[Rfam]
RNA sequence: UAAAAAGGACCGAGUCGGCUAAGAACGCAACGUCCUGGGACUGCGAUUACUCGCCCCAUCGAAAAGCUUUGUUGCAACGCCGACACUAGCCCGUCCUGGGCG
Numbered sequence: 001u002a003a004a005a006a007g008g009a010c011c012g013a014g015u016c017g018g019c020u021a022a023g024a025a026c027g028c029a030a031c032g033u034c035c036u037g038g039g040a041c042u043g044c045g046a047u048u049a050c051u052c053g054c055c056c057c058a059u060c061g062a063a064a065a066g067c068u069u070u071g072u073u074g075c076a077a078c079g080c081c082g083a084c085a086c087u088a089g090c091c092c093g094u095c096c097u098g099g100g101c102g
Stems, first nucleotide, its partner, number of pairs: 014084006027075005089101004
Description: A member of the RNA family "Bacillaceae-1 RNA" from Oceanobacillus zhaokaii, 102 nucleotides long. Rfam classes the family as a small RNA.